[Rfam]
A member of the RNA family "mir-10 microRNA precursor family" from Astyanax mexicanus, 74 nucleotides long. The base pairs follow the family's consensus structure, which was predicted with PFOLD. For this family Rfam cites "An extensive class of small RNAs in Caenorhabditis elegans" (Lee and Ambros, Science, 2001).
RNA sequence: CUAUAUAUACCCUGUAGAUCCGAAUUUGUGUGAAAGAAUUUAUUCGCAAAUUCGAGUCUUGGGGAGUAUGUAGU
Numbered sequence: 001c002u003a004u005a006u007a008u009a010c011c012c013u014g015u016a017g018a019u020c021c022g023a024a025u026u027u028g029u030g031u032g033a034a035a036g037a038a039u040u041u042a043u044u045c046g047c048a049a050a051u052u053c054g055a056g057u058c059u060u061g062g063g064g065a066g067u068a069u070g071u072a073g074u
Stems, first nucleotide, its partner, number of pairs: 002072006010064003016059004021054010